[Rfam]
PyrR binding site: a 115-nucleotide RNA from Bacillus sp. MUM 116. NCBI's taxonomy places the organism under Bacteria, Bacillati, Bacilli, Bacillaceae, Bacillus. It scores 72 bits against the family's covariance model.
RNA sequence: AUGACCUUUAAAUCAGUCCUGUGAGGCUGAGAAGGUAACGGUUUAUGAGAUUGGGAAGAUUAUGCCUAAUUUCAGAAUUGUUAACCUCUCGCUGAGCAGCGGGAGGUUUUUUUAU
Numbered sequence: 001a002u003g004a005c006c007u008u009u010a011a012a013u014c015a016g017u018c019c020u021g022u023g024a025g026g027c028u029g030a031g032a033a034g035g036u037a038a039c040g041g042u043u044u045a046u047g048a049g050a051u052u053g054g055g056a057a058g059a060u061u062a063u064g065c066c067u068a069a070u071u072u073c074a075g076a077a078u079u080g081u082u083a084a085c086c087u088c089u090c091g092c093u094g095a096g097c098a099g100c101g102g103g104a105g106g107u108u109u110u111u112u113u114a115u
Base pairs, nucleotide, nucleotide: 004036005035006034007033008032009031013030014029015028016027017026018025043077044076046074047073048072049071050070051069052068053067054066055065083108084107085106086105087104088103089102090101091100092099093098